[Rfam]
RNA sequence: GGAUUUCCGAGGACGGAACAGGCAGCCGUCGCCGCGGUGGAGAUCCGGGAGUGGCACCCCGCCGGAAUCC
Numbered sequence: 001g002g003a004u005u006u007c008c009g010a011g012g013a014c015g016g017a018a019c020a021g022g023c024a025g026c027c028g029u030c031g032c033c034g035c036g037g038u039g040g041a042g043a044u045c046c047g048g049g050a051g052u053g054g055c056a057c058c059c060c061g062c063c064g065g066a067a068u069c070c
Base pairs, nucleotide, nucleotide: 001070002069003068004067005066007065008064009063012030013029014028015027016026021055023053024052032040046061047060048059049058
Dot-bracket structure: (((((.(((..(((((....[.[[.))))).(.......).....((((..]].]..)))).))))))))